[Rfam]
RNA sequence: UGCUAUGAUGGUGUAAUUUGCGUCCUACUCUGUGUUCAGUGACAGUUGCCUGCUGUCUCAUGCUGGCACAGAAGGUUGAUGACAACAAAGUCUGAGCA
Numbered sequence: 001u002g003c004u005a006u007g008a009u010g011g012u013g014u015a016a017u018u019u020g021c022g023u024c025c026u027a028c029u030c031u032g033u034g035u036u037c038a039g040u041g042a043c044a045g046u047u048g049c050c051u052g053c054u055g056u057c058u059c060a061u062g063c064u065g066g067c068a069c070a071g072a073a074g075g076u077u078g079a080u081g082a083c084a085a086c087a088a089a090g091u092c093u094g095a096g097c098a
Stems, first nucleotide, its partner, number of pairs: 001098003021081004030071005039063002041057005
Dot-bracket structure: (((.................((((.....(((((....(((((((.......)))))....))...)))))......))))..............)))
A member of the RNA family "Small nucleolar RNA SNORD16" from Danio rerio, 98 nucleotides long. The family has 5 seed sequences and 1,321 matches in Rfam 15.1. For this family Rfam cites "A novel small nucleolar RNA (U16) is encoded inside a ribosomal protein intron and originates by processing of the pre-mRNA" (Fragapane et al., EMBO J, 1993). It scores 94 bits against the family's covariance model. Rfam links the family to the GO terms nucleolus and RNA processing.